[Rfam]
RNA sequence: AAAUGAUAAAGGCAAACCUAUCGAAAGGUAGGGACGCAAAGCCAUGGGUCUACAGCUCUACGGAGCCAAGAUUGCCAGGUUGCCAAA
Numbered sequence: 001a002a003a004u005g006a007u008a009a010a011g012g013c014a015a016a017c018c019u020a021u022c023g024a025a026a027g028g029u030a031g032g033g034a035c036g037c038a039a040a041g042c043c044a045u046g047g048g049u050c051u052a053c054a055g056c057u058c059u060a061c062g063g064a065g066c067c068a069a070g071a072u073u074g075c076c077a078g079g080u081u082g083c084c085a086a087a
Stems, first nucleotide, its partner, number of pairs: 012037002017032006040081004045077003048072003055066004
c-di-GMP-I riboswitch aptamer: an 87-nucleotide RNA sequence from Cohnella thailandensis. It scores 90 bits against the family's covariance model. Lineage of the source: Bacteria > Bacillati > Bacillota > Paenibacillaceae > Cohnella.